A member of the RNA family "Fluoride riboswitch aptamer (crcB RNA motif)", 65 nucleotides long. The match comes from Rfam's covariance-model search (40 bits). The family's consensus secondary structure is taken from published work. Its family is annotated with positive regulation of gene expression and response to fluoride in the Gene Ontology.
RNA sequence: UUAUCAUCUGGUGAUGAGGUCCACCAUCAAUCGCCCGGAUCCGGGCUGAUGACUUCUUGUUUUGA
Dot-bracket structure: .........[[[[..((((((]]]].......((((......))))....)))))).........